RNA sequence: AGGUGAGGUAGAGGCGCGGUAUCUAAGAGUAACCUUUUUGAGCUGGGAAGCUAUGAUAAAAGGGGAAAGGAGAUAUCGCCGAAGUCCGGUAAGCACCCAUCUUACCGAGGCUGGGACUGCAUCGAACAGGUGCAGGACUGUCACCAGGGAUAGAUCCCGGUUCCUGGUGGAGCGCUAUCUCACGG
Numbered sequence: 001a002g003g004u005g006a007g008g009u010a011g012a013g014g015c016g017c018g019g020u021a022u023c024u025a026a027g028a029g030u031a032a033c034c035u036u037u038u039u040g041a042g043c044u045g046g047g048a049a050g051c052u053a054u055g056a057u058a059a060a061a062g063g064g065g066a067a068a069g070g071a072g073a074u075a076u077c078g079c080c081g082a083a084g085u086c087c088g089g090u091a092a093g094c095a096c097c098c099a100u101c102u103u104a105c106c107g108a109g110g111c112u113g114g115g116a117c118u119g120c121a122u123c124g125a126a127c128a129g130g131u132g133c134a135g136g137a138c139u140g141u142c143a144c145c146a147g148g149g150a151u152a153g154a155u156c157c158c159g160g161u162u163c164c165u166g167g168u169g170g171a172g173c174g175c176u177a178u179c180u181c182a183c184g185g
Stems, first nucleotide, its partner, number of pairs: 006180006016079009033063006083112004087107007113139002117135007141170011
Rfam assigns this 185-nucleotide sequence from Thermanaerosceptrum fracticalcis to the family "Lysine riboswitch aptamer". Its family is annotated with lysine biosynthetic process in the Gene Ontology. On this family, see Sudarsan et al., Genes Dev 2003: "An mRNA structure in bacteria that controls gene expression by binding lysine". A search with the family's covariance model found it, with a score of 130 bits. NCBI's taxonomy places the organism under Bacteria, Bacillota, Clostridia, Peptococcaceae, Thermanaerosceptrum.